[Rfam]
RNA sequence: AGCUUUUUGAAUCCGUGUUGAGAUUUCGUCAGACACCAACCCAUUAGGACUGAUCAGACUUACAACAUAUGUGAAGUU
Numbered sequence: 001a002g003c004u005u006u007u008u009g010a011a012u013c014c015g016u017g018u019u020g021a022g023a024u025u026u027c028g029u030c031a032g033a034c035a036c037c038a039a040c041c042c043a044u045u046a047g048g049a050c051u052g053a054u055c056a057g058a059c060u061u062a063c064a065a066c067a068u069a070u071g072u073g074a075a076g077u078u
Stems, first nucleotide, its partner, number of pairs: 002077005008071002011068002016064002019062004024058003028054003
RNA: mir-3492 microRNA precursor family
Organism: Schistosoma curassoni